[Rfam]
RNA sequence: GUCUCUCUGGUGGAGUGGUUCUUAACAGUUCAACGCCAAAAUUGUGAAAUGUUUAGGACCACUUGAUCUGGU
Numbered sequence: 001g002u003c004u005c006u007c008u009g010g011u012g013g014a015g016u017g018g019u020u021c022u023u024a025a026c027a028g029u030u031c032a033a034c035g036c037c038a039a040a041a042u043u044g045u046g047a048a049a050u051g052u053u054u055a056g057g058a059c060c061a062c063u064u065g066a067u068c069u070g071g072u
Stems, first nucleotide, its partner, number of pairs: 014063006021056002024053004029048004
A member of the RNA family "mir-203 microRNA precursor family" from Salvelinus namaycush, 72 nucleotides long. For this family Rfam cites "Vertebrate microRNA genes" (Lim et al., Science, 2003). Lineage of the source: Eukaryota > Bilateria > Chordata > Euteleostomi > Salvelinus.